[Rfam]
RNA: Bacterial RNase P class A
Organism: Prevotella micans
RNA sequence: GCAGUGUUCCGGCUCUGUCGUUGAUGAUUAGAUUUUUGUUAUCAAUAUUAUUUUCAUCAAAGGAAAGUCCGGGCAGCAUAGGGUAUCCUGCUUCCGAAAGGGAAGCUAUUGGCGACAAUAGAUGUAGGCAGAAGAAAAGAACCGCUGCUGAAAGGCAGUAAGGAUGAGAAGGCGGUGUAAGAGACCACCGGCAAACGGGCGAUCGUUUGGCCGUGCCAGUCAGGAGCUGUAAGUUCAUGUAAACCGUUGUUUGAAGGCGACCCGCCUGAGCACUGUCACAACGGAGGGUAGAAUGCUAUUGACCAUCUAGGGCAACCUGGUGGCUAGAUAAAUGACAGGCAUCUUCCUCGUAAGAGAAAGAAACAGAACCCGGCUUAUAGGAACACUGCUCUU
Numbered sequence: 001g002c003a004g005u006g007u008u009c010c011g012g013c014u015c016u017g018u019c020g021u022u023g024a025u026g027a028u029u030a031g032a033u034u035u036u037u038g039u040u041a042u043c044a045a046u047a048u049u050a051u052u053u054u055c056a057u058c059a060a061a062g063g064a065a066a067g068u069c070c071g072g073g074c075a076g077c078a079u080a081g082g083g084u085a086u087c088c089u090g091c092u093u094c095c096g097a098a099a100g101g102g103a104a105g106c107u108a109u110u111g112g113c114g115a116c117a118a119u120a121g122a123u124g125u126a127g128g129c130a131g132a133a134g135a136a137a138a139g140a141a142c143c144g145c146u147g148c149u150g151a152a153a154g155g156c157a158g159u160a161a162g163g164a165u166g167a168g169a170a171g172g173c174g175g176u177g178u179a180a181g182a183g184a185c186c187a188c189c190g191g192c193a194a195a196c197g198g199g200c201g202a203u204c205g206u207u208u209g210g211c212c213g214u215g216c217c218a219g220u221c222a223g224g225a226g227c228u229g230u231a232a233g234u235u236c237a238u239g240u241a242a243a244c245c246g247u248u249g250u251u252u253g254a255a256g257g258c259g260a261c262c263c264g265c266c267u268g269a270g271c272a273c274u275g276u277c278a279c280a281a282c283g284g285a286g287g288g289u290a291g292a293a294u295g296c297u298a299u300u301g302a303c304c305a306u307c308u309a310g311g312g313c314a315a316c317c318u319g320g321u322g323g324c325u326a327g328a329u330a331a332a333u334g335a336c337a338g339g340c341a342u343c344u345u346c347c348u349c350g351u352a353a354g355a356g357a358a359a360g361a362a363a364c365a366g367a368a369c370c371c372g373g374c375u376u377a378u379a380g381g382a383a384c385a386c387u388g389c390u391c392u393u
Stems, first nucleotide, its partner, number of pairs: 001389010011378001012340002015338005021060007065376003069373005074229004081263004086225005091105005106121001108119004122220002127217004142163002144159006171189002174186003191211001192209007233294004244284005255267004303323005309318003